The record is a 378-nucleotide sequence from Reinekea forsetii, which matches "transfer-messenger RNA" in Rfam.
A search with the family's covariance model found it, with a score of 190 bits.
It is annotated as a non-coding RNA gene.
Pairs were carried over by alignment from the consensus structure, which is taken from published work.
Bacterial tmRNA, also known as 10Sa RNA or SsrA, is named for its dual tRNA and mRNA-like properties. Its role is to liberate the mRNA from a stalled ribosome.
RNA sequence: GGGGGCGACCUGGCUUCGACGCGGAUUACAAAGCUCCAGGUGCAUGUCGUAAUGGUAGCCAAUUACGUUAAACCAAAGCUGCAAAACCAUAGUUGCAAAUGAUGACAACUACGAAGGUUACGCGCUAGCCGCAUAAUCUUCAAACUGGGCCUAGGCCCGGCGGUCACUGGCUUGUGCCUGAACGAGCCUACUGACUGUCAAUAAAUCAGGAUAAGCGCAAAGGUUGCCUAGGCCGGAUCGCCGACAAUUUAAUCCCAGGCUCCCCGAGUCGCACCUGUCCUUCGGUAACGGCAAGGGUAAAUUAAAGAAGAGACUAAGCAUGUAGGACCGCGAGUGGCGGAUUUGCGGACGCGGGUUCGAUUCCCGCCGCCUCCACCA
Numbered sequence: 001g002g003g004g005g006c007g008a009c010c011u012g013g014c015u016u017c018g019a020c021g022c023g024g025a026u027u028a029c030a031a032a033g034c035u036c037c038a039g040g041u042g043c044a045u046g047u048c049g050u051a052a053u054g055g056u057a058g059c060c061a062a063u064u065a066c067g068u069u070a071a072a073c074c075a076a077a078g079c080u081g082c083a084a085a086a087c088c089a090u091a092g093u094u095g096c097a098a099a100u101g102a103u104g105a106c107a108a109c110u111a112c113g114a115a116g117g118u119u120a121c122g123c124g125c126u127a128g129c130c131g132c133a134u135a136a137u138c139u140u141c142a143a144a145c146u147g148g149g150c151c152u153a154g155g156c157c158c159g160g161c162g163g164u165c166a167c168u169g170g171c172u173u174g175u176g177c178c179u180g181a182a183c184g185a186g187c188c189u190a191c192u193g194a195c196u197g198u199c200a201a202u203a204a205a206u207c208a209g210g211a212u213a214a215g216c217g218c219a220a221a222g223g224u225u226g227c228c229u230a231g232g233c234c235g236g237a238u239c240g241c242c243g244a245c246a247a248u249u250u251a252a253u254c255c256c257a258g259g260c261u262c263c264c265c266g267a268g269u270c271g272c273a274c275c276u277g278u279c280c281u282u283c284g285g286u287a288a289c290g291g292c293a294a295g296g297g298u299a300a301a302u303u304a305a306a307g308a309a310g311a312g313a314c315u316a317a318g319c320a321u322g323u324a325g326g327a328c329c330g331c332g333a334g335u336g337g338c339g340g341a342u343u344u345g346c347g348g349a350c351g352c353g354g355g356u357u358c359g360a361u362u363c364c365c366g367c368c369g370c371c372u373c374c375a376c377c378a
Stems, first nucleotide, its partner, number of pairs: 001374007020347008033335004039329003043322005048067005055082005125154004130149001132147001161197006168190001169188005177210005216243002221238001226260004263297003268292004273286003277314003281309003351367005